Shown here is a 98-nucleotide RNA sequence from Halomonas urumqiensis, a member of the family "Glycine riboswitch aptamer". The match comes from Rfam's covariance-model search (64 bits). Lineage of the source: Bacteria > Pseudomonadota > Oceanospirillales > Halomonadaceae > Halomonas. The pairing is the family consensus, mapped onto this sequence.
[Rfam]
RNA sequence: AUCGCGAUAGCGGGAGAGUCCGGUCCGUUAACCACGGUGCCGGCGCCGAAGGAGCAACUGCCCCGGAAACUCUCAGGCCAACGGACCGCCGUCGCGUC
Numbered sequence: 001a002u003c004g005c006g007a008u009a010g011c012g013g014g015a016g017a018g019u020c021c022g023g024u025c026c027g028u029u030a031a032c033c034a035c036g037g038u039g040c041c042g043g044c045g046c047c048g049a050a051g052g053a054g055c056a057a058c059u060g061c062c063c064c065g066g067a068a069a070c071u072c073u074c075a076g077g078c079c080a081a082c083g084g085a086c087c088g089c090c091g092u093c094g095c096g097u098c
Base pairs, nucleotide, nucleotide: 006093007092008091010089011088012087013086020043021042022041023040045078046077047076048074049073052072053071054070058065